RNA: Fluoride riboswitch aptamer (crcB RNA motif)
RNA sequence: AAUAUUCAAAGUGAUGAGGCUCACUUGAAUUGCUGAAAAGCUGAUGGCUUCUACCUUAAG
Numbered sequence: 001a002a003u004a005u006u007c008a009a010a011g012u013g014a015u016g017a018g019g020c021u022c023a024c025u026u027g028a029a030u031u032g033c034u035g036a037a038a039a040g041c042u043g044a045u046g047g048c049u050u051c052u053a054c055c056u057u058a059a060g
Stems, first nucleotide, its partner, number of pairs: 010025004016051006032041003